RNA: ZMP/ZTP riboswitch aptamer (pfl RNA motif)
Organism: Schaalia canis
RNA sequence: UAAGAAGGUCGUGACUGGCGAUUUAGGUGGGGGACCACCGGGGAGCGAAGGAAUGGGUUUGUGGCCGCCCGCCUGGGCCAUGAAC
Number, nucleotide and partner (000 for none) at each position: 001u000002a000003a054004g000005a000006a000007g000008g000009u048010c047011g046012u045013g000014a000015c042016u041017g073018g072019c071020g070021a000022u000023u000024u000025a000026g000027g038028u037029g036030g035031g000032g000033g000034a000035c030036c029037a028038c027039c000040g000041g016042g015043g000044a000045g012046c011047g010048a009049a000050g000051g000052a000053a000054u003055g000056g000057g000058u000059u000060u000061g000062u080063g079064g078065c077066c076067g000068c000069c000070c020071g019072c018073c017074u000075g000076g066077g065078c064079c063080a062081u000082g000083a000084a000085c000